[Rfam]
RNA sequence: CAGUGGAGGAAGGUUCCCACCCAGAUAGCUGUCGGUUGGUCUGGCAACUGACGAGCGGGUCGGUCGGGCAACUGGCCGGGUCGAAGCCUCGUGAUAAAGGCUGCCUUUGGGGCCGCGGCUAGACAAGCUCUUUGAAACGCAU
Numbered sequence: 001c002a003g004u005g006g007a008g009g010a011a012g013g014u015u016c017c018c019a020c021c022c023a024g025a026u027a028g029c030u031g032u033c034g035g036u037u038g039g040u041c042u043g044g045c046a047a048c049u050g051a052c053g054a055g056c057g058g059g060u061c062g063g064u065c066g067g068g069c070a071a072c073u074g075g076c077c078g079g080g081u082c083g084a085a086g087c088c089u090c091g092u093g094a095u096a097a098a099g100g101c102u103g104c105c106u107u108u109g110g111g112g113c114c115g116c117g118g119c120u121a122g123a124c125a126a127g128c129u130c131u132u133u134g135a136a137a138c139g140c141a142u
Stems, first nucleotide, its partner, number of pairs: 021044005051092005056083003060079002065074001067072001099120006124134002

The family of this 142-nucleotide sequence from Mesorhizobium sanjuanii is "Group II catalytic intron D1-D4-4". NCBI's taxonomy places the organism under Bacteria, Pseudomonadati, Alphaproteobacteria, Hyphomicrobiales, Mesorhizobium. Rfam 15.1 lists 840 matches to the family in 506 species. Rfam's curators write: Group II introns are found in rRNA, tRNA and mRNA of organelles in fungi, plants and protists, and also in mRNA in bacteria.